Rfam assigns this 82-nucleotide RNA from Tibeticola sediminis to the family "SucA RNA motif". It scores 74 bits against the family's covariance model. The base pairs follow the family's consensus structure, which is taken from published work. The family's RNA type in Rfam is cis-regulatory element. Lineage of the source: Bacteria > Pseudomonadati > Betaproteobacteria > Burkholderiales > Tibeticola. Its family is annotated with regulation of translation in the Gene Ontology.
RNA sequence: UCGCAUCCGCCAACCGGUACAGCCGUGUCGCGGAAGGUUGUUCAACCAGAUCGGAUUCCCCUUAGGGGAACGAAAGUCAGCG
Numbered sequence: 001u002c003g004c005a006u007c008c009g010c011c012a013a014c015c016g017g018u019a020c021a022g023c024c025g026u027g028u029c030g031c032g033g034a035a036g037g038u039u040g041u042u043c044a045a046c047c048a049g050a051u052c053g054g055a056u057u058c059c060c061c062u063u064a065g066g067g068g069a070a071c072g073a074a075a076g077u078c079a080g081c082g
Base pairs, nucleotide, nucleotide: 002082003081004080006034007033008032009031010030015025016024017023018022036047037046038045039044049077051075056070057069058068059067060066061065